Rfam assigns this 57-nucleotide sequence from Mikania micrantha to the family "Plastid-psbA-3 3UTR RNA". The literature on the family includes a 2023 paper in Plant Commun by Richter et al., "Retrograde signaling in plants: A critical review focusing on the GUN pathway and beyond". It scores 60 bits against the family's covariance model. Rfam describes the family as follows. Plastid psbA-3 is a non-coding RNA (ncRNA) present in plastids. It was identified in inverted repeat sequences in the 3 prime untranslate region (3UTR) of photosystem II quinone-binding protein (psbA). The source organism's lineage runs through Eukaryota, Streptophytina, Heliantheae alliance, Eupatorieae and Mikania.

RNA sequence: AAAGGAGUAAUAACGCCCUCUUGAUAAAACAAGAGGAAAGGUAUUGCUCCUUUUUUA
Numbered sequence: 001a002a003a004g005g006a007g008u009a010a011u012a013a014c015g016c017c018c019u020c021u022u023g024a025u026a027a028a029a030c031a032a033g034a035g036g037a038a039a040g041g042u043a044u045u046g047c048u049c050c051u052u053u054u055u056u057a
Stems, first nucleotide, its partner, number of pairs: 001053012014040001018035006
Annotation:
Pairs were carried over by alignment from the consensus structure, which was predicted with LocARNA.